[Rfam]
RNA sequence: AUAAAAGAGGUUCGUUUUGACCAUCCCUCUAUAAAAAACUAGGCAAAC
Numbered sequence: 001a002u003a004a005a006a007g008a009g010g011u012u013c014g015u016u017u018u019g020a021c022c023a024u025c026c027c028u029c030u031a032u033a034a035a036a037a038a039c040u041a042g043g044c045a046a047a048c
Stems, first nucleotide, its partner, number of pairs: 006030005015041001
A member of the RNA family "PreQ1 (pre queuosine) riboswitch aptamer" from Clostridium senegalense, 48 nucleotides long. Rfam 15.1 lists 873 matches to the family in 692 species. About the family: This family is a bacterial riboswitch that binds to the metabolite preQ1, an intermediate in the biosynthesis of the modified nucleoside queuosine from GTP. One example of this riboswitch is located in the leader of the Bacillus subtilis ykvJKLM (queCDEF) operon which encodes four genes necessary for queuosine production. PreQ1 binding to the riboswitch aptamer is thought to induce premature transcription termination within the leader to down-regulate expression of these genes. The source organism's lineage runs through Bacteria, Bacillati, Eubacteriales, Clostridiaceae and Clostridium. Rfam links the family to the GO term queuosine biosynthetic process.